[Rfam]
RNA: Group II catalytic intron D1-D4-3
Organism: Mesobacillus persicus
RNA sequence: UCCAUGGCGACAUGGAAUCUGAAGGAAGCUUGAGGCAAACCUCUGGUCUGACGAACAGAAAUCAUAUAAGAGGCAACGUAUGGGGACAAAACUGCAAAAGAAGUUAAAAUCCGAUAGCUACAGCAAUCAUACGGUGUAUAUGUGGCAGAUAGAUGGAGGGAAAGAGUUCGCAC
Numbered sequence: 001u002c003c004a005u006g007g008c009g010a011c012a013u014g015g016a017a018u019c020u021g022a023a024g025g026a027a028g029c030u031u032g033a034g035g036c037a038a039a040c041c042u043c044u045g046g047u048c049u050g051a052c053g054a055a056c057a058g059a060a061a062u063c064a065u066a067u068a069a070g071a072g073g074c075a076a077c078g079u080a081u082g083g084g085g086a087c088a089a090a091a092c093u094g095c096a097a098a099a100g101a102a103g104u105u106a107a108a109a110u111c112c113g114a115u116a117g118c119u120a121c122a123g124c125a126a127u128c129a130u131a132c133g134g135u136g137u138a139u140a141u142g143u144g145g146c147a148g149a150u151a152g153a154u155g156g157a158g159g160g161a162a163a164g165a166g167u168u169c170g171c172a173c
Stems, first nucleotide, its partner, number of pairs: 001016006028173001031170002036164001040159006046150005062145006073137003077133007084112003090105004